The record is a 175-nucleotide RNA from Actinomadura barringtoniae, which matches "c-di-AMP riboswitch aptamer (ydaO/yuaA leader)" in Rfam. For this family Rfam cites "New RNA motifs suggest an expanded scope for riboswitches in bacterial genetic control" (Barrick et al., Proc Natl Acad Sci U S A, 2004). The organism belongs to Actinomadura, within Bacteria.
RNA sequence: CUGGCCGGACAGCCGAAUCCCGCGAAUGCCGCGCGGGAACCGGGGACCCAUUCAACGAACGGCCCCAUGCCGUACGUACCAGGGGUGAAUCCGCAGCGCACCCAGCGGUCGCGGUAGGGCAGACUCCCGGCCCGAACCCGUCAGCUAACCCGGUAGGCGAUCGAGGAGAAGGAGA
Dot-bracket structure: ...........(((...(((((((.......)))))))((((((....(................................)(((.....((((................))))..((((.........))))...))).........)))))).))).................